[Rfam]
Notes
A member of the RNA family "MIR9563 microRNA precursor family" from Brassica carinata, 122 nucleotides long.
RNA sequence: GGAAUAUAAAAAACCGUCUUUUAACUUUUAACUAAAAAAAACUAAGAACAAGCUCUUAAAUAUUUAAGUACCGCUUCUUAGUUUUUUUUAAUUAAAAGUUAAAAGACGGUUUUUUAUAUUCC
Numbered sequence: 001g002g003a004a005u006a007u008a009a010a011a012a013a014c015c016g017u018c019u020u021u022u023a024a025c026u027u028u029u030a031a032c033u034a035a036a037a038a039a040a041a042c043u044a045a046g047a048a049c050a051a052g053c054u055c056u057u058a059a060a061u062a063u064u065u066a067a068g069u070a071c072c073g074c075u076u077c078u079u080a081g082u083u084u085u086u087u088u089u090a091a092u093u094a095a096a097a098g099u100u101a102a103a104a105g106a107c108g109g110u111u112u113u114u115u116a117u118a119u120u121c122c
Base pairs, nucleotide, nucleotide: 001122002121003120004119005118006117007116008115009114010113011112012111013110014109015108016107017106018105019104020103021102022101023100024099025098026097027096028095029094030093031092033090034089035088036087037086038085039084042081043080044079045078046077047076048075